[Rfam]
RNA sequence: CGACUCGAGGAUGAGGAACUUGCGUCAUACAUCCUCGCUGGCCUAGACUCUGACUACAACCCGGUGGUGUCCACCAUCGGCAUGCGCGUGGAGCCGCUCACACUUGGAGAGCUGUACACCCAACUAAUCAGUUGGGA
Numbered sequence: 001c002g003a004c005u006c007g008a009g010g011a012u013g014a015g016g017a018a019c020u021u022g023c024g025u026c027a028u029a030c031a032u033c034c035u036c037g038c039u040g041g042c043c044u045a046g047a048c049u050c051u052g053a054c055u056a057c058a059a060c061c062c063g064g065u066g067g068u069g070u071c072c073a074c075c076a077u078c079g080g081c082a083u084g085c086g087c088g089u090g091g092a093g094c095c096g097c098u099c100a101c102a103c104u105u106g107g108a109g110a111g112c113u114g115u116a117c118a119c120c121c122a123a124c125u126a127a128u129c130a131g132u133u134g135g136g137a
Stems, first nucleotide, its partner, number of pairs: 004136005089107001091105003
A member of the RNA family "Small nucleolar RNA Z247" from Sorghum bicolor, 137 nucleotides long. A search with the family's covariance model found it, with a score of 45 bits. A reference for the family is Chen et al. (2003), "The high diversity of snoRNAs in plants: identification and comparative study of 120 snoRNA genes from Oryza sativa", Nucleic Acids Res. The family's RNA type in Rfam is C/D-box small nucleolar RNA. The source organism's lineage runs through Eukaryota, Tracheophyta, Spermatophyta, Magnoliopsida and Sorghum.